[Rfam]
RNA: SucA RNA motif
RNA sequence: UCGCAAUCCGCCAACCGGUCCAGCCGUGUCGCGGAAGGUUUUUCAACCAGCCAACGUCCUGGAUACCAGGGUGAAAGGUGAGCG
Numbered sequence: 001u002c003g004c005a006a007u008c009c010g011c012c013a014a015c016c017g018g019u020c021c022a023g024c025c026g027u028g029u030c031g032c033g034g035a036a037g038g039u040u041u042u043u044c045a046a047c048c049a050g051c052c053a054a055c056g057u058c059c060u061g062g063a064u065a066c067c068a069g070g071g072u073g074a075a076a077g078g079u080g081a082g083c084g
Stems, first nucleotide, its partner, number of pairs: 002084003007035005016026004037048004050079003056072007